[Rfam]
RNA sequence: UUGGCUGCGCCAGCGGCUGCAACACAGGACAUGGGUCCUGCCUGUCGUCCCCGCUCGUGUCUUGUGUUGCAGCCAGUGGAGACGC
Numbered sequence: 001u002u003g004g005c006u007g008c009g010c011c012a013g014c015g016g017c018u019g020c021a022a023c024a025c026a027g028g029a030c031a032u033g034g035g036u037c038c039u040g041c042c043u044g045u046c047g048u049c050c051c052c053g054c055u056c057g058u059g060u061c062u063u064g065u066g067u068u069g070c071a072g073c074c075a076g077u078g079g080a081g082a083c084g085c
Stems, first nucleotide, its partner, number of pairs: 011078002015074004020069011032057004
This 85-nucleotide RNA sequence from Betta splendens belongs to the Rfam family "mir-187 microRNA precursor family". A reference for the family is Chen et al. (2005), "The developmental miRNA profiles of zebrafish as determined by small RNA cloning", Genes Dev. Its family is annotated with RISC complex and miRNA-mediated post-transcriptional gene silencing in the Gene Ontology. NCBI's taxonomy places the organism under Eukaryota, Eumetazoa, Actinopterygii, Eurypterygia, Betta. Rfam 15.1 lists 636 matches to the family in 622 species.